[Rfam]
Shown here is a 95-nucleotide RNA from Dorcoceras hygrometricum, a member of the family "MIR828 microRNA precursor family". The organism belongs to Dorcoceras, within Eukaryota.
RNA sequence: GUAAUGUUUCUUGCUCAAAUGAGUAUUCCAAAGGGGAACUCGAUCACAACUUAGUGUUCCAUUUUUGUGAUGCUCAUUUGGGCAAGUAAUGUUAA
Numbered sequence: 001g002u003a004a005u006g007u008u009u010c011u012u013g014c015u016c017a018a019a020u021g022a023g024u025a026u027u028c029c030a031a032a033g034g035g036g037a038a039c040u041c042g043a044u045c046a047c048a049a050c051u052u053a054g055u056g057u058u059c060c061a062u063u064u065u066u067g068u069g070a071u072g073c074u075c076a077u078u079u080g081g082g083c084a085a086g087u088a089a090u091g092u093u094a095a
Base pairs, nucleotide, nucleotide: 004092005091006090007089008088010086011085012084013083014082015081016080017079018078019077020076021075022074023073024072025071026070027069029067030066031065032064033063034062